RNA sequence: AUCACGCCAACGUCAAUGGAAUCACAGUGUCGCCGGAAUUCGGCCAAUCGCGUGCCGCGGGCCGGCGCGAUCUUUCUUCGCGUAGCAGGGCCGGUUCGCGAGGCGCUCCGGUCUAUCCCAGCCCCCCAGCCCCCCGGGGUGUGCGCGAACCGGCCACUGCUACGCACCGACUUCAGACCCCCGAUGUAGGCCAUCCCAUGCGGAUGGCCUUUUU
Numbered sequence: 001a002u003c004a005c006g007c008c009a010a011c012g013u014c015a016a017u018g019g020a021a022u023c024a025c026a027g028u029g030u031c032g033c034c035g036g037a038a039u040u041c042g043g044c045c046a047a048u049c050g051c052g053u054g055c056c057g058c059g060g061g062c063c064g065g066c067g068c069g070a071u072c073u074u075u076c077u078u079c080g081c082g083u084a085g086c087a088g089g090g091c092c093g094g095u096u097c098g099c100g101a102g103g104c105g106c107u108c109c110g111g112u113c114u115a116u117c118c119c120a121g122c123c124c125c126c127c128a129g130c131c132c133c134c135c136g137g138g139g140u141g142u143g144c145g146c147g148a149a150c151c152g153g154c155c156a157c158u159g160c161u162a163c164g165c166a167c168c169g170a171c172u173u174c175a176g177a178c179c180c181c182c183g184a185u186g187u188a189g190g191c192c193a194u195c196c197c198a199u200g201c202g203g204a205u206g207g208c209c210u211u212u213u214u
Stems, first nucleotide, its partner, number of pairs: 080165007089155011103142009121130002188210008

The record is a 214-nucleotide RNA sequence from Xanthobacter sp. SG618, which matches "Bradyrhizobiaceae sRNA BjrC174" in Rfam. For this family Rfam cites "Small RNAs of the Bradyrhizobium/Rhodopseudomonas lineage and their analysis" (Madhugiri et al., RNA Biol, 2012). The base pairs follow the family's consensus structure.